[Rfam]
Nucleotides: 110
Base pairs, nucleotide, nucleotide: 001110003108004107005106006105007104008103013042014041015040016039017038021031022030023029025098026097027096028095043090044089045088046087048086049085050082051081052080094102
Number, partner (000 for none) and nucleotide at each position: 001110g002000a003108u004107u005106c006105a007104u008103c009000a010000c011000g012000a013042g014041c015040g016039g017038c018000c019000g020000a021031g022030a023029g024000a025098c026097u027096g028095g029023c030022u031021c032000u033000u034000c035000g036000a037000c038017g039016c040015c041014g042013c043090a044089g045088c046087a047000a048086c049085c050082g051081u052080g053000g054000g055000c056000c057000g058000c059000a060000c061000u062000c063000c064000g065000c066000c067000g068000g069000g070000a071000g072000c073000g074000g075000c076000g077000a078000c079000g080052c081051a082050c083000a084000a085049g086048g087046u088045g089044c090043u091000a092000a093000u094102g095028c096027c097026a098025g099000a100000g101000a102094c103008g104007a105006u106005g107004a108003a109000c110001c

This 110-nucleotide RNA sequence from Gordonia humi belongs to the Rfam family "SAM riboswitch aptamer (S box leader)". The match comes from Rfam's covariance-model search (65 bits).